Source information: This 88-nucleotide RNA sequence from Shewanella sp. MR-7 belongs to the Rfam family "c-di-GMP-I riboswitch aptamer". Rfam's curators put it in the seed alignment.
[Rfam]
RNA sequence: UAUUGUGAAAGGCAAACCAAUUGAAAGAUUGGGACGCAAAGCCUCCGGUCUAAGGGUCGUUUGUACCUAUGAUAGCGGGGAUACCGCA
Numbered sequence: 001u002a003u004u005g006u007g008a009a010a011g012g013c014a015a016a017c018c019a020a021u022u023g024a025a026a027g028a029u030u031g032g033g034a035c036g037c038a039a040a041g042c043c044u045c046c047g048g049u050c051u052a053a054g055g056g057u058c059g060u061u062u063g064u065a066c067c068u069a070u071g072a073u074a075g076c077g078g079g080g081a082u083a084c085c086g087c088a
Base pairs, nucleotide, nucleotide: 012037013036017032018031019030020029021028022027040082042080043079045078046077047076048073049072050071055067056066057065